[Rfam]
Nucleotides: 348
Stems, first nucleotide, its partner, number of pairs: 001344010012313007020037002023034004042331003046328005051218004058250004063214005068082005083097001084095004098209002103207002105203002120150002122146003127143003130139003158176006177198001178196002181194005222270004232261006241255005277296008
Number, partner (000 for none) and nucleotide at each position: 001344g002343g003342a004341g005340u006339c007338g008337g009336c010335c011000a012313g013312a014311c015310a016309g017308u018307c019000g020037c021036g022000u023034c024033a025032u026031c027000u028000u029000c030000g031026g032025a033024u034023g035000c036021c037020g038000a039000g040000g041000a042331a043330a044329g045000u046328c047327c048326g049325g050324g051218c052217u053216c054215c055000a056000c057000a058250g059249g060248g061247c062000a063214c064213g065212g066211u067210g068082c069081c070080a071079g072078g073000u074000a075000a076000c077000g078072c079071c080070u081069g082068g083097g084095c085094g086093g087092c088000g089000c090000g091000a092087g093086c094085c095084g096000a097083c098209g099208g100000a101000a102000a103207g104206u105203g106202c107000a108000a109000c110000a111000g112000a113000g114000a115000g116000c117000a118000g119000a120150c121149c122146g123145c124144c125000g126000a127143u128142g129141g130139c131138c132137c133000g134000c135000g136000a137132g138131g139130g140000a141129u142128c143127a144124g145123g146122c147000a148000a149121g150120g151000g152000u153000g154000a155000a156000a157000c158176g159175g160174u161173g162172c163171g164000g165000u166000a167000a168000g169000a170000g171163c172162g173161c174160a175159c176158c177198g178196c179195g180000a181194g182193u183192c184191c185190g186000g187000c188000a189000a190185c191184g192183g193182a194181c195179c196178g197000g198177c199000a200000c201000g202106g203105c204000a205000a206104a207103c208099c209098c210067c211066a212065c213064c214063g215054g216053g217052a218051g219000c220000a221000a222270g223269g224268c225267c226000a227000a228000a229000u230000a231000g232261g233260g234259a235258g236257g237256c238000g239000a240000u241255g242254c243253c244252g245251c246000g247061g248060c249059c250058c251245g252244c253243g254242g255241u256237g257236c258235c259234u260233c261232c262000g263000g264000g265000u266000a267225g268224g269223c270222u271000g272000c273000u274000u275000g276000a277296g278295c279294c280293g281292c282291g283290c284289a285000g286000c287000g288000a289284u290283g291282c292281g293280c294279g295278g296277c297000c298000g299000a300000g301000a302000g303000g304000a305000a306000u307018g308017a309016c310015u311014g312013u313012c314000c315000a316000c317000g318000a319000c320000a321000g322000a323000a324050c325049c326048c327047g328046g329044c330043u331042u332000a333000c334000c335010g336009g337008c338007c339006g340005g341004c342003u343002c344001c345000g346000c347000c348000c
The family of this 348-nucleotide RNA from Vulcaniibacterium thermophilum is "Bacterial RNase P class A". The family's consensus secondary structure is taken from published work. Gene Ontology terms of the family: tRNA processing, ribonuclease P activity and dimeric ribonuclease P complex. Lineage of the source: Bacteria > Pseudomonadati > Pseudomonadota > Lysobacteraceae > Vulcaniibacterium. About the family: Ribonuclease P (RNase P) is a ubiquitous endoribonuclease, found in archaea, bacteria and eukarya as well as chloroplasts and mitochondria.